[Rfam]
MIR2629 microRNA precursor family: a 72-nucleotide RNA from Medicago truncatula. The base pairs follow the family's consensus structure, which was predicted with RNAalifold.
RNA sequence: CGCUUAGGUUUUUCUCGGCAGUUAACUGCAGCCGGAUUUCUAAAACUUCGGCAGUUAACUGCCGAGAGGGCA
Numbered sequence: 001c002g003c004u005u006a007g008g009u010u011u012u013u014c015u016c017g018g019c020a021g022u023u024a025a026c027u028g029c030a031g032c033c034g035g036a037u038u039u040c041u042a043a044a045a046c047u048u049c050g051g052c053a054g055u056u057a058a059c060u061g062c063c064g065a066g067a068g069g070g071c072a
Base pairs, nucleotide, nucleotide: 012068013067015065016064017063018062019061020060021059022058023057024056025055026054027053028052029051